[Rfam]
RNA sequence: GCGUCCCGCCUCGUGAUCGUCUUCUCAACCUUCGCCGGGCGGGCGGAUGAAGGGGAGGCCCCCGUGAGGACGUGACUCACGGGGGCCUUUC
Numbered sequence: 001g002c003g004u005c006c007c008g009c010c011u012c013g014u015g016a017u018c019g020u021c022u023u024c025u026c027a028a029c030c031u032u033c034g035c036c037g038g039g040c041g042g043g044c045g046g047a048u049g050a051a052g053g054g055g056a057g058g059c060c061c062c063c064g065u066g067a068g069g070a071c072g073u074g075a076c077u078c079a080c081g082g083g084g085g086c087c088u089u090u091c
Base pairs, nucleotide, nucleotide: 002045003044005043006042007041008040009039010038011037013035014034015033016032019029020028053091054090055089056088057087058086059085060084061083062082063081064080065079066078067077068076
Shown here is a 91-nucleotide sequence from Streptomyces sp. SID7982, a member of the family "sodF sRNA". The pairing is the family consensus, mapped onto this sequence. Rfam 15.1 lists 336 matches to the family in 317 species. Rfam links the family to the GO terms negative regulation of translation, mRNA binding and regulation of mRNA stability. The family's RNA type in Rfam is small RNA.